[Rfam]
RNA sequence: UGACUCGAUAGAGGUCGCGGAGCUCAAUAGUAUCCUGUAGCUACAGCUUGGGGAAGCUGCUGCUUGAGAAAGGGAAAUCCGCCGAAGGUCAUAUCUACCCCGAGAUAUUUCCUGGGCCGGUGCAUAAUAUGCGCCGAACUGUCACAUCGUAAAAUGUGGAGCGCUAUCAAUGGU
Numbered sequence: 001u002g003a004c005u006c007g008a009u010a011g012a013g014g015u016c017g018c019g020g021a022g023c024u025c026a027a028u029a030g031u032a033u034c035c036u037g038u039a040g041c042u043a044c045a046g047c048u049u050g051g052g053g054a055a056g057c058u059g060c061u062g063c064u065u066g067a068g069a070a071a072g073g074g075a076a077a078u079c080c081g082c083c084g085a086a087g088g089u090c091a092u093a094u095c096u097a098c099c100c101c102g103a104g105a106u107a108u109u110u111c112c113u114g115g116g117c118c119g120g121u122g123c124a125u126a127a128u129a130u131g132c133g134c135c136g137a138a139c140u141g142u143c144a145c146a147u148c149g150u151a152a153a154a155u156g157u158g159g160a161g162c163g164c165u166a167u168c169a170a171u172g173g174u
Stems, first nucleotide, its partner, number of pairs: 007168005017082005024075002033067002037063004086113003091108006114140002118136007142159006

Annotation: Shown here is a 174-nucleotide sequence from Mogibacterium sp. CM50, a member of the family "Lysine riboswitch aptamer". It scores 91 bits against the family's covariance model. The base pairs follow the family's consensus structure, which is taken from published work. Its family is annotated with lysine biosynthetic process in the Gene Ontology. The organism belongs to Mogibacterium, within Bacteria. Rfam describes the family as follows. Riboswitches are metabolite binding domains within certain messenger RNAs that serve as precision sensors for their corresponding targets. Allosteric rearrangement of mRNA structure is mediated by ligand binding, and this results in modulation of gene expression.